[Rfam]
RNA sequence: AUAAUUAAUUGUUAGGUGAGGCUCCUAUAUGGACACAAGCUGCUGCCGCGAAAGAAUCGAGAGACUCUUAGUUGGUGGAACAGGAAUCAUCGUGAAGGUGAUUCAUAAUGCAGCUGACAGAUAUUCUGUCUACGCCCUAUAGUGCUAAAGCUCGACGAUGACCAUGAUU
Numbered sequence: 001a002u003a004a005u006u007a008a009u010u011g012u013u014a015g016g017u018g019a020g021g022c023u024c025c026u027a028u029a030u031g032g033a034c035a036c037a038a039g040c041u042g043c044u045g046c047c048g049c050g051a052a053a054g055a056a057u058c059g060a061g062a063g064a065c066u067c068u069u070a071g072u073u074g075g076u077g078g079a080a081c082a083g084g085a086a087u088c089a090u091c092g093u094g095a096a097g098g099u100g101a102u103u104c105a106u107a108a109u110g111c112a113g114c115u116g117a118c119a120g121a122u123a124u125u126c127u128g129u130c131u132a133c134g135c136c137c138u139a140u141a142g143u144g145c146u147a148a149a150g151c152u153c154g155a156c157g158a159u160g161a162c163c164a165u166g167a168u169u
Stems, first nucleotide, its partner, number of pairs: 006164001009161002011156002013096001015152003020146003025142005031136002039114005045076004054067002057064002084104003089099003116130003
The family of this 169-nucleotide sequence from Enterococcus florum is "M-box riboswitch aptamer (ykoK leader)". NCBI's taxonomy places the organism under Bacteria, Bacillati, Bacillota, Lactobacillales, Enterococcus. Pairs were carried over by alignment from the consensus structure. From the family's description: M-box riboswitch, also know as ykoK leader is described as a metaloregulatory RNA that sense divalent metals and function as a genetic control element of genes related to divalent metal transport in bacteria. It was first reported upstream of the B.subtilis ykoK gene and genes with related functions in other bacteria.